[Rfam]
RNA sequence: CGCUAUACUACCCUUUGAAUUUGCAGGCCUCCUUCUCUACAGCCUGCAUUCACCGUGU
Numbered sequence: 001c002g003c004u005a006u007a008c009u010a011c012c013c014u015u016u017g018a019a020u021u022u023g024c025a026g027g028c029c030u031c032c033u034u035c036u037c038u039a040c041a042g043c044c045u046g047c048a049u050u051c052a053c054c055g056u057g058u
Stems, first nucleotide, its partner, number of pairs: 002012001004010002016052004023047006030041001

A member of the RNA family "Enterobacterial sRNA STnc450" from Cronobacter sakazakii, 58 nucleotides long. The family's RNA type in Rfam is small RNA.